[Rfam]
RNA sequence: AAGUGUUAGAGUUCUUUUAGAAUUUACCUAGUAUGUUUUUCAGUUUUCACCAGGAGACACCC
Numbered sequence: 001a002a003g004u005g006u007u008a009g010a011g012u013u014c015u016u017u018u019a020g021a022a023u024u025u026a027c028c029u030a031g032u033a034u035g036u037u038u039u040u041c042a043g044u045u046u047u048c049a050c051c052a053g054g055a056g057a058c059a060c061c062c
Base pairs, nucleotide, nucleotide: 034059035058036057037056038055039054040053043050044049
RNA: U7 small nuclear RNA
Organism: Sapajus apella